[Rfam]
Rfam assigns this 122-nucleotide sequence from Lactobacillus acidophilus to the family "Ribosomal protein L10 leader".
About the family: This family is a putative r-protein leader autoregulatory structure found in B. subtilis and other low-GC Gram-positive bacteria.
The source organism's lineage runs through Bacteria, Bacillati, Bacilli, Lactobacillaceae and Lactobacillus acidophilus.
The literature on the family includes a 1994 paper in Prog Nucleic Acid Res Mol Biol by Zengel and Lindahl, "Diverse mechanisms for regulating ribosomal protein synthesis in Escherichia coli".
Rfam's curators put it in the seed alignment.
RNA sequence: AGUUAAUUGUAAAUUCUACCUAAGACUCGGGUGGCAUGACGCCUCAAAAUCCCGCCGAGGCCAGAAGAUAAUGAAGAUUUUUAUGCUCCAUGUCUUUCGGCAUGGAGUUUUUGCUUUAAAAG
Numbered sequence: 001a002g003u004u005a006a007u008u009g010u011a012a013a014u015u016c017u018a019c020c021u022a023a024g025a026c027u028c029g030g031g032u033g034g035c036a037u038g039a040c041g042c043c044u045c046a047a048a049a050u051c052c053c054g055c056c057g058a059g060g061c062c063a064g065a066a067g068a069u070a071a072u073g074a075a076g077a078u079u080u081u082u083a084u085g086c087u088c089c090a091u092g093u094c095u096u097u098c099g100g101c102a103u104g105g106a107g108u109u110u111u112u113g114c115u116u117u118a119a120a121a122g
Stems, first nucleotide, its partner, number of pairs: 028054004033043003086107009